[Rfam]
RNA sequence: CUGAUAAUCUGUUUCCGAGCCAAAUGGUCUAAAGGUUUCGACCAUGACGUUUGGCCUGAGCCCUCGGGCUCGCGGGGUAUGGCUGGAAACGGCCCUGCCUUCCUUUUGAGAAGGAGACAAAUAGGUGCGGGA
Numbered sequence: 001c002u003g004a005u006a007a008u009c010u011g012u013u014u015c016c017g018a019g020c021c022a023a024a025u026g027g028u029c030u031a032a033a034g035g036u037u038u039c040g041a042c043c044a045u046g047a048c049g050u051u052u053g054g055c056c057u058g059a060g061c062c063c064u065c066g067g068g069c070u071c072g073c074g075g076g077g078u079a080u081g082g083c084u085g086g087a088a089a090c091g092g093c094c095c096u097g098c099c100u101u102c103c104u105u106u107u108g109a110g111a112a113g114g115a116g117a118c119a120a121a122u123a124g125g126u127g128c129g130g131g132a
Stems, first nucleotide, its partner, number of pairs: 003126001011118006019055007027048003034042001036041001057072005075100005081094005101109002

Rfam assigns this 132-nucleotide sequence from Sporobacter termitidis to the family "Molybdenum/Tungsten riboswitch aptamer (Moco RNA motif)".
The base pairs follow the family's consensus structure, which is taken from published work.
The organism belongs to Sporobacter termitidis, within Bacteria.
It scores 66 bits against the family's covariance model.